[Rfam]
RNA sequence: CCUGAGACUGGCGUCCAAGGCUAUCGCCUGUCGUCGCUUCGCGACU
Numbered sequence: 001c002c003u004g005a006g007a008c009u010g011g012c013g014u015c016c017a018a019g020g021c022u023a024u025c026g027c028c029u030g031u032c033g034u035c036g037c038u039u040c041g042c043g044a045c046u
Stems, first nucleotide, its partner, number of pairs: 001020003006015003033045005
Annotation:
Rfam assigns this 46-nucleotide RNA sequence from Rubripirellula tenax to the family "Acido-Lenti-1 RNA". Pairs were carried over by alignment from the consensus structure, which is taken from published work. NCBI's taxonomy places the organism under Bacteria, Planctomycetota, Planctomycetia, Pirellulaceae, Rubripirellula. A search with the family's covariance model found it, with a score of 40 bits.